[Rfam]
RNA sequence: UGUCUCCUCCACCUCCUCUAACGGUGGAUUCAGCCCCAAGCCCCAGCGGCUCGGGGCUUUUUUU
Numbered sequence: 001u002g003u004c005u006c007c008u009c010c011a012c013c014u015c016c017u018c019u020a021a022c023g024g025u026g027g028a029u030u031c032a033g034c035c036c037c038a039a040g041c042c043c044c045a046g047c048g049g050c051u052c053g054g055g056g057c058u059u060u061u062u063u064u
Stems, first nucleotide, its partner, number of pairs: 008028006033057005039051002

The record is a 64-nucleotide RNA from Comamonas kerstersii, which matches "Betaproteobacteria toxic small RNA" in Rfam. About the family: Overexpression in amino aid rich medium attenuates growth, suggesting role in repressing amino acid intake and metabolism. A search with the family's covariance model found it, with a score of 61 bits.